Shown here is a 137-nucleotide sequence from Streptomyces griseoviridis, a member of the family "c-di-AMP riboswitch aptamer (ydaO/yuaA leader)". This family represents a conserved RNA structure found upstream of the ydaO and yuaA genes in Bacillus subtilis and related genes in other bacteria. The pairing is the family consensus, mapped onto this sequence.
RNA sequence: CAUGACGGGUCGCCGGAACGGUCACGCCAUGGCCGGAGCCGAGCAGCCCUUGGGGUGAAGCCGCGUUCGCGCGGCCGGGCAACUUCGCCAGCCCGAAUCCGACAGGUCAUCCUUCACAGGCGGCUGACGAAGGGUUG
Numbered sequence: 001c002a003u004g005a006c007g008g009g010u011c012g013c014c015g016g017a018a019c020g021g022u023c024a025c026g027c028c029a030u031g032g033c034c035g036g037a038g039c040c041g042a043g044c045a046g047c048c049c050u051u052g053g054g055g056u057g058a059a060g061c062c063g064c065g066u067u068c069g070c071g072c073g074g075c076c077g078g079g080c081a082a083c084u085u086c087g088c089c090a091g092c093c094c095g096a097a098u099c100c101g102a103c104a105g106g107u108c109a110u111c112c113u114u115c116a117c118a119g120g121c122g123g124c125u126g127a128c129g130a131a132g133g134g135u136u137g
Stems, first nucleotide, its partner, number of pairs: 011122004019031002035115004044052002053100003061074004077094004